[Rfam]
RNA sequence: GAACUAGUAGACGAAGUGAUUGGGUUGCGGCUAGUGUUUGUAAGCUGGCCAGACCCAGGAAAGUCCCCGGGCCCUCAACUGCAGAGAUGCAGGCUCGGAAACGAAUAAGGCUUCAGGCCGUUGGGGUCUGUCCUUGCCAUCGGCAAGGCGGGGCUGAGACAAGUGUGGAGCCCUCAUGACCCUUAAUGCCGAAGCAAUUUGGCCGAUUCCCACAGUUAUUCACUUGGUCCCUAAGUUGGACUAACAGAACGGGGCUUAUGAUCUAGUAGUU
Numbered sequence: 001g002a003a004c005u006a007g008u009a010g011a012c013g014a015a016g017u018g019a020u021u022g023g024g025u026u027g028c029g030g031c032u033a034g035u036g037u038u039u040g041u042a043a044g045c046u047g048g049c050c051a052g053a054c055c056c057a058g059g060a061a062a063g064u065c066c067c068c069g070g071g072c073c074c075u076c077a078a079c080u081g082c083a084g085a086g087a088u089g090c091a092g093g094c095u096c097g098g099a100a101a102c103g104a105a106u107a108a109g110g111c112u113u114c115a116g117g118c119c120g121u122u123g124g125g126g127u128c129u130g131u132c133c134u135u136g137c138c139a140u141c142g143g144c145a146a147g148g149c150g151g152g153g154c155u156g157a158g159a160c161a162a163g164u165g166u167g168g169a170g171c172c173c174u175c176a177u178g179a180c181c182c183u184u185a186a187u188g189c190c191g192a193a194g195c196a197a198u199u200u201g202g203c204c205g206a207u208u209c210c211c212a213c214a215g216u217u218a219u220u221c222a223c224u225u226g227g228u229c230c231c232u233a234a235g236u237u238g239g240a241c242u243a244a245c246a247g248a249a250c251g252g253g254g255c256u257u258a259u260g261a262u263c264u265a266g267u268a269g270u271u
Stems, first nucleotide, its partner, number of pairs: 002271005008265004014225006022056005029050007061257003065254004080091004135196003140192006147183002150180001151173004161166001227241004
Rfam assigns this 271-nucleotide sequence from Gossypium stocksii to the family "RNase MRP". Its family is annotated with ribonuclease MRP activity, ribonuclease MRP complex and rRNA processing in the Gene Ontology. Lineage of the source: Eukaryota > Viridiplantae > Streptophytina > Embryophyta > Gossypium.